[Rfam]
RNA sequence: CCCAGAGGUAUUGAUGGGUGUGAAAACAACACCGCUUCGGCGGUGAGACCCUGUUAUUACACCAACCCACGCAGAAGCGUGGGUUUUUUUU
Numbered sequence: 001c002c003c004a005g006a007g008g009u010a011u012u013g014a015u016g017g018g019u020g021u022g023a024a025a026a027c028a029a030c031a032c033c034g035c036u037u038c039g040g041c042g043g044u045g046a047g048a049c050c051c052u053g054u055u056a057u058u059a060c061a062c063c064a065a066c067c068c069a070c071g072c073a074g075a076a077g078c079g080u081g082g083g084u085u086u087u088u089u090u091u
Stems, first nucleotide, its partner, number of pairs: 017063004021053001028044001030042001032040002065084008